[Rfam]
RNA sequence: AUGUAAAUUAAAUAAACGGCUUAUAUAUUUCAACAUAAAGGGUUGAAGUUUCUACAAUACACCAAUGUAUUAGCUAUGAGCAUAAUAUAUGUGUAA
Numbered sequence: 001a002u003g004u005a006a007a008u009u010a011a012a013u014a015a016a017c018g019g020c021u022u023a024u025a026u027a028u029u030u031c032a033a034c035a036u037a038a039a040g041g042g043u044u045g046a047a048g049u050u051u052c053u054a055c056a057a058u059a060c061a062c063c064a065a066u067g068u069a070u071u072a073g074c075u076a077u078g079a080g081c082a083u084a085a086u087a088u089a090u091g092u093g094u095a096a
Base pairs, nucleotide, nucleotide: 019081020080021079022078023077024076025075029047030046031045032044033043034042056071057070058069059068060067061066